[Rfam]
Rfam assigns this 52-nucleotide RNA sequence from Solanum tuberosum to the family "MIR1886 microRNA precursor family".
Nucleotides: 052
Stems, first nucleotide, its partner, number of pairs: 001050012015036003018029003
Number, partner (000 for none) and nucleotide at each position: 001050u002049g003048a004047g005046a006045u007044g008043g009042a010041a011040u012039c013000u014000a015036u016035g017034u018029u019028u020027g021000g022000a023000c024000a025000u026000g027020u028019g029018a030000u031000u032000u033000c034017a035016c036015a037000c038000u039012g040011a041010u042009u043008u044007c045006a046005u047004c048003u049002c050001a051000u052000g
NCBI's taxonomy places the organism under Eukaryota, Streptophyta, Tracheophyta, Spermatophyta, Solanum.